[Rfam]
RNA sequence: ACAACUUUUUGUGACUGACGGAAAUGCGGAUAACCGCAAGGGAGCAAGAAGUUUAAAUGUCGACCGUCUGGGCGUAUUUG
Numbered sequence: 001a002c003a004a005c006u007u008u009u010u011g012u013g014a015c016u017g018a019c020g021g022a023a024a025u026g027c028g029g030a031u032a033a034c035c036g037c038a039a040g041g042g043a044g045c046a047a048g049a050a051g052u053u054u055a056a057a058u059g060u061c062g063a064c065c066g067u068c069u070g071g072g073c074g075u076a077u078u079u080g
Base pairs, nucleotide, nucleotide: 003053004052005051006050007049008048009047010046011045012044015041016040017068018067019066020065021064026037027036028035029034057075058074059073060072061071
RNA: ZMP/ZTP riboswitch aptamer (pfl RNA motif)